[Rfam]
RNA sequence: ACGGACCGAAGCGCUUUCCCCUCCUAGCCGCUUCGGUCCGACGGACAGCACUUCUCCUCCCAGCUGUCGGUCACUUUCGAAGCCCGGCGCAUCUCUCCCGCGCCGGGCUUUUGUC
Numbered sequence: 001a002c003g004g005a006c007c008g009a010a011g012c013g014c015u016u017u018c019c020c021c022u023c024c025u026a027g028c029c030g031c032u033u034c035g036g037u038c039c040g041a042c043g044g045a046c047a048g049c050a051c052u053u054c055u056c057c058u059c060c061c062a063g064c065u066g067u068c069g070g071u072c073a074c075u076u077u078c079g080a081a082g083c084c085c086g087g088c089g090c091a092u093c094u095c096u097c098c099c100g101c102g103c104c105g106g107g108c109u110u111u112u113g114u115c
Stems, first nucleotide, its partner, number of pairs: 007035003011031003040072003044068006080110011
Shown here is a 115-nucleotide sequence from Rhizobium johnstonii, a member of the family "Alphaproteobacterial ar14".
The source organism's lineage runs through Bacteria, Pseudomonadati, Pseudomonadota, Rhizobiaceae and Rhizobium johnstonii.
Smr14C2 was renamed NfeR1 (Nodule Formation Efficiency RNA) highly expressed in salt stress and during the symbiotic interaction on legume roots.
It is one of the family's seed sequences.
Gene Ontology term of the family: biological process involved in symbiotic interaction.
A reference for the family is del Val et al. (2012), "A survey of sRNA families in alpha-proteobacteria", RNA Biol.